[Rfam]
RNA sequence: UUUCUUCUCUCACCAUCCGGCCUGUGUCAGCGUUCCCGUCCGCCUUUCGAGGCGUGUUCUGGUUGAGUGCUGGCAGUUCGUCCGUCCUCAUGGAGCCAUCUCUUUUUGAUAGGUGUCAAUUUCUGGACGACAGGUCGCAGAGUGAGUCGGCGCGCGCUAUGAAGCCUGAGCUUGCCUUCGGGUUUGAGCUCGGUGGAUGGACGCGCCAGGCGGACUGAUUCCUGUUCCCUUUUGCUAGGCCGUCGGCCCAUGAUGCUUGGGACAAACCCAGUCGGCUACAUCU
Numbered sequence: 001u002u003u004c005u006u007c008u009c010u011c012a013c014c015a016u017c018c019g020g021c022c023u024g025u026g027u028c029a030g031c032g033u034u035c036c037c038g039u040c041c042g043c044c045u046u047u048c049g050a051g052g053c054g055u056g057u058u059c060u061g062g063u064u065g066a067g068u069g070c071u072g073g074c075a076g077u078u079c080g081u082c083c084g085u086c087c088u089c090a091u092g093g094a095g096c097c098a099u100c101u102c103u104u105u106u107u108g109a110u111a112g113g114u115g116u117c118a119a120u121u122u123c124u125g126g127a128c129g130a131c132a133g134g135u136c137g138c139a140g141a142g143u144g145a146g147u148c149g150g151c152g153c154g155c156g157c158u159a160u161g162a163a164g165c166c167u168g169a170g171c172u173u174g175c176c177u178u179c180g181g182g183u184u185u186g187a188g189c190u191c192g193g194u195g196g197a198u199g200g201a202c203g204c205g206c207c208a209g210g211c212g213g214a215c216u217g218a219u220u221c222c223u224g225u226u227c228c229c230u231u232u233u234g235c236u237a238g239g240c241c242g243u244c245g246g247c248c249c250a251u252g253a254u255g256c257u258u259g260g261g262a263c264a265a266a267c268c269c270a271g272u273c274g275g276c277u278a279c280a281u282c283u
Stems, first nucleotide, its partner, number of pairs: 018137008026074005032068004036062002038059001040056001042053004083129005091118003095114003149207006164194003168191006175182002212276001213273005226262004234256002238248004
Record summary
A member of the RNA family "A. fumigatus sRNA Afu_309" from Paraphoma chrysanthemicola, 283 nucleotides long. The match comes from Rfam's covariance-model search (132 bits). Rfam 15.1 lists 663 matches to the family in 646 species. The source organism's lineage runs through Eukaryota, saccharomyceta, leotiomyceta, Dothideomycetes and Paraphoma.